[Rfam]
RNA sequence: UCUAGAACUCGAGAUAUGGGCUGAACAUUAAACAGUGUCUGGGGUGCAGGACAGAUUCGGACUUCUCCGUUAUUGCUAUAAUUUGGACUUGAAAACGGCCUUUUUAGAUCUUGGACUCCACAUGAAAGUUAUAUGUCUAUGUCUCACCAAAUCGAGA
Numbered sequence: 001u002c003u004a005g006a007a008c009u010c011g012a013g014a015u016a017u018g019g020g021c022u023g024a025a026c027a028u029u030a031a032a033c034a035g036u037g038u039c040u041g042g043g044g045u046g047c048a049g050g051a052c053a054g055a056u057u058c059g060g061a062c063u064u065c066u067c068c069g070u071u072a073u074u075g076c077u078a079u080a081a082u083u084u085g086g087a088c089u090u091g092a093a094a095a096c097g098g099c100c101u102u103u104u105u106a107g108a109u110c111u112u113g114g115a116c117u118c119c120a121c122a123u124g125a126a127a128g129u130u131a132u133a134u135g136u137c138u139a140u141g142u143c144u145c146a147c148c149a150a151a152u153c154g155a156g157a
Base pairs, nucleotide, nucleotide: 002156003155005153006152009146011145012144013143014142015141016140017139018138019137020136022133023132025130027129028128029127035123036122037121041119042118043117045115048112049111050110051109054105055104059100060099062098063097073087074086